Shown here is a 359-nucleotide RNA sequence from Campylobacter lari, a member of the family "transfer-messenger RNA". Gene Ontology term of the family: RNA catabolic process. Pairs were carried over by alignment from the consensus structure, which is taken from published work.
RNA sequence: GGGGACGACUUGGCUUCGACAGGAGUAGAGUGGCCUUGGUGGCAUGUCGCUUUGAGCAAAGCGUAAAAAGCUCAAAUUAAAAUUAAACGCAAACAACGUUAAAUUCGCUCCUGCUUAUGCUAAAGCUGCGUAAGUUCAGUUGAGCCUGAAUUUUAAGUGAUACUAUCUAGCUUAGAAUUUGGUCAUUUUUGAUAGUGUAGAUUGAAAUUUGACAAAUUUUAAUUGAAAUUAAAGUCUUAGUCUAGCUUGAAAUUUUGGAAGGUGAGUUUGGCUAGAUGAAUUUUUCACCUUUGCUAAGCAUGUAGAUGCCGUGGUUGUUUUAUUUUUGGACAGGGGUUCAAUUCCCCUCGUCUCCACCA
Numbered sequence: 001g002g003g004g005a006c007g008a009c010u011u012g013g014c015u016u017c018g019a020c021a022g023g024a025g026u027a028g029a030g031u032g033g034c035c036u037u038g039g040u041g042g043c044a045u046g047u048c049g050c051u052u053u054g055a056g057c058a059a060a061g062c063g064u065a066a067a068a069a070g071c072u073c074a075a076a077u078u079a080a081a082a083u084u085a086a087a088c089g090c091a092a093a094c095a096a097c098g099u100u101a102a103a104u105u106c107g108c109u110c111c112u113g114c115u116u117a118u119g120c121u122a123a124a125g126c127u128g129c130g131u132a133a134g135u136u137c138a139g140u141u142g143a144g145c146c147u148g149a150a151u152u153u154u155a156a157g158u159g160a161u162a163c164u165a166u167c168u169a170g171c172u173u174a175g176a177a178u179u180u181g182g183u184c185a186u187u188u189u190u191g192a193u194a195g196u197g198u199a200g201a202u203u204g205a206a207a208u209u210u211g212a213c214a215a216a217u218u219u220u221a222a223u224u225g226a227a228a229u230u231a232a233a234g235u236c237u238u239a240g241u242c243u244a245g246c247u248u249g250a251a252a253u254u255u256u257g258g259a260a261g262g263u264g265a266g267u268u269u270g271g272c273u274a275g276a277u278g279a280a281u282u283u284u285u286c287a288c289c290u291u292u293g294c295u296a297a298g299c300a301u302g303u304a305g306a307u308g309c310c311g312u313g314g315u316u317g318u319u320u321u322a323u324u325u326u327u328g329g330a331c332a333g334g335g336g337u338u339c340a341a342u343u344c345c346c347c348u349c350g351u352c353u354c355c356a357c358c359a
Base pairs, nucleotide, nucleotide: 001355002354003353004352005351006350007349020328021327022326023325024324025323026322027321028320029319032316033315034314035313037311038310039309040308041307043302044301045300046299047298048063049062050061051060052059053074054073055072056071057070120144121143124141125140126139127138128137146182147181148180149179150178151177154174155173156172157171160198161197162196163195164194165193166192200224201223202222203221204220205219206218207217208216211236212235213234240277241276242275243274244273245272246271247270251268252267253266258292259291260290261289263287264286265285332348333347334346335345336344